The record is a 110-nucleotide sequence from Gelria sp. Kuro-4, which matches "SAM riboswitch aptamer (S box leader)" in Rfam.
The match comes from Rfam's covariance-model search (81 bits).
NCBI's taxonomy places the organism under Bacteria, Bacillati, Clostridia, Thermoanaerobacteraceae, Gelria.
RNA sequence: CUCUUAUCCAGAGAGGUGGAGGGACGGGCCCGAUGAAACCCGGCAGCGUGCCAGGGGGUGUCCUGGUGAUGUGCCAAUUCCUGCAGAAUGUCAAUUCUGGAAGAUAGGAG
Numbered sequence: 001c002u003c004u005u006a007u008c009c010a011g012a013g014a015g016g017u018g019g020a021g022g023g024a025c026g027g028g029c030c031c032g033a034u035g036a037a038a039c040c041c042g043g044c045a046g047c048g049u050g051c052c053a054g055g056g057g058g059u060g061u062c063c064u065g066g067u068g069a070u071g072u073g074c075c076a077a078u079u080c081c082u083g084c085a086g087a088a089u090g091u092c093a094a095u096u097c098u099g100g101a102a103g104a105u106a107g108g109a110g
Stems, first nucleotide, its partner, number of pairs: 001110008013041001015040003021031003025083004042075004047071002049068006079102001084099006